This 104-nucleotide RNA sequence from Kerstersia gyiorum belongs to the Rfam family "traJ-II RNA". By type it is a cis-regulatory element. The base pairs follow the family's consensus structure, which is taken from published work.
RNA sequence: GGGCAGGAUAGGUAAAGUAGGCCCACCUGCAAGCAGUCGGCCCUUCUUUACUUUCCCGUAUUCGCACCUAGCGGCGCUCAAUGGAAAUCCUGCCCUGCGGAGCC
Numbered sequence: 001g002g003g004c005a006g007g008a009u010a011g012g013u014a015a016a017g018u019a020g021g022c023c024c025a026c027c028u029g030c031a032a033g034c035a036g037u038c039g040g041c042c043c044u045u046c047u048u049u050a051c052u053u054u055c056c057c058g059u060a061u062u063c064g065c066a067c068c069u070a071g072c073g074g075c076g077c078u079c080a081a082u083g084g085a086a087a088u089c090c091u092g093c094c095c096u097g098c099g100g101a102g103c104c
Stems, first nucleotide, its partner, number of pairs: 001095009012051006019044003024039001027036003054086001056084002064077002067074002